[Rfam]
RNA sequence: ACCGAGACUAGAGUCACAUCCUAACACAUUUCAUUGUCUUGGUGUGCUAUAGUCCUCGAAGAUAAAUUUUUGAUCCUUAUUCACUGGCUGUGGUGUUUCAUACCUCAGUCAGCCACCGAAUCAGAGACAUUC
Numbered sequence: 001a002c003c004g005a006g007a008c009u010a011g012a013g014u015c016a017c018a019u020c021c022u023a024a025c026a027c028a029u030u031u032c033a034u035u036g037u038c039u040u041g042g043u044g045u046g047c048u049a050u051a052g053u054c055c056u057c058g059a060a061g062a063u064a065a066a067u068u069u070u071u072g073a074u075c076c077u078u079a080u081u082c083a084c085u086g087g088c089u090g091u092g093g094u095g096u097u098u099c100a101u102a103c104c105u106c107a108g109u110c111a112g113c114c115a116c117c118g119a120a121u122c123a124g125a126g127a128c129a130u131u132c
Base pairs, nucleotide, nucleotide: 003058004057005056006055007053008052009051012048013047015046016045017044018043019042020041024037025036026035070124071123072122073121074120076118084112085111086110087109089107090106092104093103094102
RNA: Small nucleolar RNA SNORA3/SNORA45 family